Shown here is a 109-nucleotide sequence from Paenibacillus sp. yr247, a member of the family "Guanidine-I riboswitch aptamer". Rfam's curators write: This family represents a conserved RNA structure found upstream of the ykkC and yxkD genes in Bacillus subtilis and related genes in other bacteria. The match comes from Rfam's covariance-model search (90 bits).
[Rfam]
RNA sequence: AAACUUGUUUUCUAGGGUUCCGCGACAGAAUGAAGGCUGUUGGUCAGGUCCGAGAGAAGACACACGGUGAACUUCAUCGUGCACACGGAGGGAUAAAAGCCCGGGAGGA
Numbered sequence: 001a002a003a004c005u006u007g008u009u010u011u012c013u014a015g016g017g018u019u020c021c022g023c024g025a026c027a028g029a030a031u032g033a034a035g036g037c038u039g040u041u042g043g044u045c046a047g048g049u050c051c052g053a054g055a056g057a058a059g060a061c062a063c064a065c066g067g068u069g070a071a072c073u074u075c076a077u078c079g080u081g082c083a084c085a086c087g088g089a090g091g092g093a094u095a096a097a098a099g100c101c102c103g104g105g106a107g108g109a
Stems, first nucleotide, its partner, number of pairs: 007061006015051002020048002022045001023042006063081007084104001086107001090102003